[Rfam]
RNA: MIR6020 microRNA precursor family
RNA sequence: CUAUACAGACGACCUGUAAAUGUUUUUCGAGUAUCUUCAUUCUUCCCUCAUCCUACUGAUGUUUUAGAGAGGAAGAUACUCAGCAAAACAUUUACUGGUUACUUGUAUAG
Number, nucleotide and partner (000 for none) at each position: 001c110002u109003a108004u107005a106006c105007a104008g103009a000010c000011g100012a099013c098014c097015u000016g095017u094018a093019a092020a091021u090022g089023u088024u087025u086026u085027u083028c000029g081030a080031g079032u078033a077034u076035c075036u074037u073038c072039a000040u069041u068042c067043u066044u000045c000046c061047c000048u059049c058050a057051u000052c000053c000054u000055a000056c000057u050058g049059a048060u000061g046062u000063u000064u000065u000066a043067g042068a041069g040070a000071g000072g038073a037074a036075g035076a034077u033078a032079c031080u030081c029082a000083g027084c000085a026086a025087a024088a023089c022090a021091u020092u019093u018094a017095c016096u000097g014098g013099u012100u011101a000102c000103u008104u007105g006106u005107a004108u003109a002110g001